[Rfam]
RNA sequence: GGCCCAAUGCCACGUCUCUGAUAGCCUGAUGCAUUGACCCGGGAUGCUAUGAUUGGGCCGAGAUCAAGUCAAGUUUUGAUAUUUCGCAAAUUGAUAGGAACCUGUGGAUUAGAUGGUUAUUGUCCAUCCACAGAGCCGGUUUAUGCGAUCACAUUU
Number, nucleotide and partner (000 for none) at each position: 001g000002g058003c057004c056005c055006a054007a053008u052009g050010c000011c000012a000013c046014g045015u044016c043017u042018c041019u000020g039021a000022u037023a000024g032025c031026c000027u000028g000029a000030u000031g025032c024033a000034u000035u000036g000037a022038c000039c020040c000041g018042g017043g016044a015045u014046g013047c000048u000049a000050u009051g000052a008053u007054u006055g005056g004057g003058c002059c000060g000061a000062g000063a000064u000065c000066a000067a000068g000069u000070c000071a000072a000073g000074u000075u000076u000077u000078g000079a000080u000081a000082u000083u000084u148085c147086g146087c145088a144089a000090a000091u000092u000093g000094a000095u000096a000097g137098g136099a000100a000101c000102c133103u132104g131105u000106g129107g128108a127109u126110u000111a000112g000113a000114u000115g000116g000117u000118u000119a000120u000121u000122g000123u000124c000125c000126a109127u108128c107129c106130a000131c104132a103133g102134a000135g000136c098137c097138g000139g000140u000141u000142u000143a000144u088145g087146c086147g085148a084149u000150c000151a000152c000153a000154u000155u000156u000
RNA: Small nucleolar RNA snoR2/U65
Organism: Cocos nucifera